[Rfam]
RNA: Small nucleolar RNA Z105
Organism: Oryza meridionalis
RNA sequence: UUGGCAUGAUGAGGAAGCAUUACUUUUAUCUGAUCUAUUUGAUGAUAAAUUCCUCCUACUCAUUCUGA
Number, nucleotide and partner (000 for none) at each position: 001u000002u000003g000004g000005c000006a063007u062008g061009a060010u000011g000012a000013g000014g000015a000016a000017g000018c000019a000020u000021u000022a000023c000024u000025u000026u047027u000028a000029u000030c041031u000032g000033a000034u000035c000036u000037a000038u000039u000040u000041g030042a000043u000044g000045a000046u000047a026048a000049a000050u000051u000052c000053c000054u000055c000056c000057u000058a000059c000060u009061c008062a007063u006064u000065c000066u000067g000068a000